Shown here is an 85-nucleotide RNA from Roseburia sp. 1XD42-69, a member of the family "GA-cis RNA". It is annotated as a small RNA.
RNA sequence: UAUAGGAGGAAGGCAAAUGCGAAGCAUUUUUUUGGAUGCCUUCCGACGACUUGCCGCCGAACAAAGUGAGGGGGCGUUACAUUUA
Numbered sequence: 001u002a003u004a005g006g007a008g009g010a011a012g013g014c015a016a017a018u019g020c021g022a023a024g025c026a027u028u029u030u031u032u033u034g035g036a037u038g039c040c041u042u043c044c045g046a047c048g049a050c051u052u053g054c055c056g057c058c059g060a061a062c063a064a065a066g067u068g069a070g071g072g073g074g075c076g077u078u079a080c081a082u083u084u085a
Stems, first nucleotide, its partner, number of pairs: 008044006015029005053075003057071002061067002